[Rfam]
RNA sequence: CAAUACCGCGCGGGAGAGACCUCGACAACGGGGCGCCGACGGGGCAAUACUCCCCAGUAACCUCUCAGGCACCACGGACCGCGCGGAGGAG
Number, nucleotide and partner (000 for none) at each position: 001c000002a000003a000004u000005a000006c086007c085008g084009c083010g082011c081012g080013g079014g000015a000016g000017a000018g000019a000020c033021c032022u031023c030024g000025a000026c000027a000028a000029c000030g023031g022032g021033g020034c000035g070036c069037c068038g066039a065040c000041g000042g064043g063044g062045c000046a000047a000048u057049a000050c000051u000052c000053c000054c000055c000056a000057g048058u000059a000060a000061c000062c044063u043064c042065u039066c038067a000068g037069g036070c035071a000072c000073c000074a000075c000076g000077g000078a000079c013080c012081g011082c010083g009084c008085g007086g006087a000088g000089g000090a000091g000

Description:
Glycine riboswitch aptamer: a 91-nucleotide RNA sequence from Nocardiopsis kunsanensis. From the family's description: This family represents the bacterial glycine riboswitch. The pairing is the family consensus, mapped onto this sequence. Rfam links the family to the GO term glycine biosynthetic process. Taxonomically the source falls in Nocardiopsis (Bacteria, Bacillati, Actinomycetes, Nocardiopsidaceae).